[Rfam]
RNA sequence: CUACGAAUAUUCUCACUGUUCUGAUUUUGUAAUAAUCAGUGCAGGCAAAACAUUCGCUAUAUUAAGACCAAGCAUGUGUCCCCAGACCUAGUUCUCUUCCUAGGUCUGGUUUUACAAAUGCUGGUUAUAAAC
Number, nucleotide and partner (000 for none) at each position: 001c000002u000003a000004c056005g055006a000007a000008u000009a000010u000011u000012c000013u000014c000015a000016c044017u043018g042019u041020u000021c039022u038023g037024a036025u035026u034027u000028u000029g000030u000031a000032a000033u000034a026035a025036u024037c023038a022039g021040u000041g019042c018043a017044g016045g000046c000047a000048a000049a000050a000051c000052a000053u000054u000055c005056g004057c000058u000059a000060u000061a000062u000063u000064a000065a000066g000067a125068c124069c123070a122071a000072g121073c120074a000075u000076g000077u000078g000079u000080c000081c000082c109083c108084a107085g106086a105087c104088c103089u102090a101091g100092u000093u000094c000095u000096c000097u000098u000099c000100c091101u090102a089103g088104g087105u086106c085107u084108g083109g082110u000111u000112u000113u000114a000115c000116a000117a000118a000119u000120g073121c072122u070123g069124g068125u067126u000127a000128u000129a000130a000131a000132c000
Rfam assigns this 132-nucleotide RNA sequence from Rhinolophus ferrumequinum to the family "Small nucleolar RNA SNORA72". U72 is a member of the H/ACA class of snoRNAs. The snoRNA gene is located in intron 4 of the ribosomal L30 protein gene in human, mouse and chicken. Taxonomically the source falls in Rhinolophus (Eukaryota, Opisthokonta, Eutheria, Laurasiatheria). The family's consensus secondary structure was predicted with PFOLD.